Rfam assigns this 78-nucleotide sequence from Chryseobacterium salivictor to the family "Flavo-1 RNA". It scores 74 bits against the family's covariance model. The family's consensus secondary structure is taken from published work.
RNA sequence: AUCUAGCCCAGAUCGAAGCGGCAUCCUUUUUCUUUUUUCCCGAAAAAGAAAAAGAUAUAGCGGAGAGCUGGACUGCAU
Numbered sequence: 001a002u003c004u005a006g007c008c009c010a011g012a013u014c015g016a017a018g019c020g021g022c023a024u025c026c027u028u029u030u031u032c033u034u035u036u037u038u039c040c041c042g043a044a045a046a047a048g049a050a051a052a053a054g055a056u057a058u059a060g061c062g063g064a065g066a067g068c069u070g071g072a073c074u075g076c077a078u
Stems, first nucleotide, its partner, number of pairs: 009070003013066002018061002023056003029051008